[Rfam]
RNA sequence: GCGGGGGUGCCCGAGCCAGGUCAAAGGGGGCGGGCUUAGGACCCGCUGGCGUAGGCCUGCGUGGGUUCAAAUCCCACCCCCCGCA
Number, nucleotide and partner (000 for none) at each position: 001g084002c083003g082004g081005g080006g079007g078008u000009g000010c028011c027012c026013g000014a000015g000016c000017c000018a000019g000020g000021u000022c000023a000024a000025a000026g012027g011028g010029g000030g046031c045032g044033g043034g042035c000036u000037u000038a000039g000040g000041a000042c034043c033044c032045g031046c030047u000048g000049g000050c000051g000052u000053a000054g000055g000056c000057c000058u000059g000060c000061g077062u076063g075064g074065g073066u000067u000068c000069a000070a000071a000072u000073c065074c064075c063076a062077c061078c007079c006080c005081c004082c003083g002084c001085a000